[Rfam]
RNA sequence: GGCUGGUCCGAUGGCAGUGGGUUACCAGAACUUACCUAAAGUUAGUAUCACUAACCCCCCACUGCUAAACUUGACUGGCUUAAA
Numbered sequence: 001g002g003c004u005g006g007u008c009c010g011a012u013g014g015c016a017g018u019g020g021g022u023u024a025c026c027a028g029a030a031c032u033u034a035c036c037u038a039a040a041g042u043u044a045g046u047a048u049c050a051c052u053a054a055c056c057c058c059c060c061a062c063u064g065c066u067a068a069a070c071u072u073g074a075c076u077g078g079c080u081u082a083a084a
Stems, first nucleotide, its partner, number of pairs: 001080008010072002016063006030046003034042002
This 84-nucleotide RNA sequence from Myotis myotis belongs to the Rfam family "Y RNA". By type it is a non-coding RNA gene. About the family: Y RNAs are components of the Ro ribonucleoprotein particle (Ro RNP), in association with Ro60 and La proteins. The family has 104 seed sequences and 26,986 matches in Rfam 15.1.